[Rfam]
RNA sequence: AUCCAACAUCAAGAGUGACUCAGCAAUGAGUACAGCAACCGAGCCAGCCAGGCCGCGGUGCUUCCCGCCAGGGGAUGUGAUGCACGAAAGUGUAUAAAAACUUCUGGCCCUC
Numbered sequence: 001a002u003c004c005a006a007c008a009u010c011a012a013g014a015g016u017g018a019c020u021c022a023g024c025a026a027u028g029a030g031u032a033c034a035g036c037a038a039c040c041g042a043g044c045c046a047g048c049c050a051g052g053c054c055g056c057g058g059u060g061c062u063u064c065c066c067g068c069c070a071g072g073g074g075a076u077g078u079g080a081u082g083c084a085c086g087a088a089a090g091u092g093u094a095u096a097a098a099a100a101c102u103u104c105u106g107g108c109c110c111u112c
Base pairs, nucleotide, nucleotide: 006078007077008076009075010074015033018031019030020029021028034062035061036060039058040057041056043053044052050103080095081094082093083092084091085090
Annotation
Shown here is a 112-nucleotide sequence, a member of the family "SAM-I/IV (S-adenosyl methionine) riboswitch aptamer".